[Rfam]
RNA: Pseudomonas sRNA CrcZ
RNA sequence: ACAACAACAAUAAAAAAUGCGGCACACCCAAUAAAAAUAAGACGUAACGGCUCUGACAUAACAAGAACAACACGGCAGAGGCGAAGCUAACAGAUUUUUUUGGAGAGGAUGGCUUUUCGGUGGGGCGUGCCCCACGCGACCGGACAGAGAACAAUAAAACUACCUUCAGGUAGCGCCCGUCACGGUUGGAUCAGUAAUGAUGGAAGUCGAUCAGCGCUCAAAAAAAUACGUUUGCUCUUGAUCCCGGAUGGGGAUCGCCCGCGACACAGAGGCACGGCUGACAAAAACAACAAUUUGCCGCCCUCCAAUAAUAAAAAGAGCACGCAACAUCACUUCGAGGGGAGCUUAGGCUCCCCUCAGUGCUUCCUGUCCUGCGUAUUUCCCUCGCGCU
Numbered sequence: 001a002c003a004a005c006a007a008c009a010a011u012a013a014a015a016a017a018u019g020c021g022g023c024a025c026a027c028c029c030a031a032u033a034a035a036a037a038u039a040a041g042a043c044g045u046a047a048c049g050g051c052u053c054u055g056a057c058a059u060a061a062c063a064a065g066a067a068c069a070a071c072a073c074g075g076c077a078g079a080g081g082c083g084a085a086g087c088u089a090a091c092a093g094a095u096u097u098u099u100u101u102g103g104a105g106a107g108g109a110u111g112g113c114u115u116u117u118c119g120g121u122g123g124g125g126c127g128u129g130c131c132c133c134a135c136g137c138g139a140c141c142g143g144a145c146a147g148a149g150a151a152c153a154a155u156a157a158a159a160c161u162a163c164c165u166u167c168a169g170g171u172a173g174c175g176c177c178c179g180u181c182a183c184g185g186u187u188g189g190a191u192c193a194g195u196a197a198u199g200a201u202g203g204a205a206g207u208c209g210a211u212c213a214g215c216g217c218u219c220a221a222a223a224a225a226a227u228a229c230g231u232u233u234g235c236u237c238u239u240g241a242u243c244c245c246g247g248a249u250g251g252g253g254a255u256c257g258c259c260c261g262c263g264a265c266a267c268a269g270a271g272g273c274a275c276g277g278c279u280g281a282c283a284a285a286a287a288c289a290a291c292a293a294u295u296u297g298c299c300g301c302c303c304u305c306c307a308a309u310a311a312u313a314a315a316a317a318g319a320g321c322a323c324g325c326a327a328c329a330u331c332a333c334u335u336c337g338a339g340g341g342g343a344g345c346u347u348a349g350g351c352u353c354c355c356c357u358c359a360g361u362g363c364u365u366c367c368u369g370u371c372c373u374g375c376g377u378a379u380u381u382c383c384c385u386c387g388c389g390c391u
Base pairs, nucleotide, nucleotide: 048083049082051080052079053078054077098223099222100221101220102219112215113214137188138187139186140185141184142183160173161172162171163170164169241255242254243253244252245251269373271371272370273369274368275300276299277298278297320363321362322361323360337358338357339356340355341354342353343352344351345350